[Rfam]
RNA: Small nucleolar RNA Z161/Z228
RNA sequence: AAGCCAAAUGAUGAAUUAGGAUUUAAAAUCUCACGACGGUCGUCUGAGACAAGAUUUCUUGUCGCCAUUGAUGCAGUUAUAAUCCAAUUUCUCUGAUGGUU
Number, nucleotide and partner (000 for none) at each position: 001a101002a100003g000004c098005c000006a000007a000008a000009u000010g000011a000012u000013g000014a000015a000016u000017u000018a000019g000020g000021a000022u000023u000024u000025a000026a000027a000028a000029u000030c000031u000032c000033a000034c000035g000036a000037c000038g000039g000040u000041c000042g000043u000044c000045u000046g000047a000048g000049a000050c061051a060052a059053g000054a000055u000056u000057u000058c000059u052060u051061g050062u000063c000064g000065c000066c000067a000068u000069u000070g000071a000072u000073g000074c000075a000076g000077u000078u000079a000080u000081a000082a000083u000084c000085c000086a000087a000088u000089u000090u000091c000092u000093c000094u000095g000096a000097u000098g004099g000100u002101u001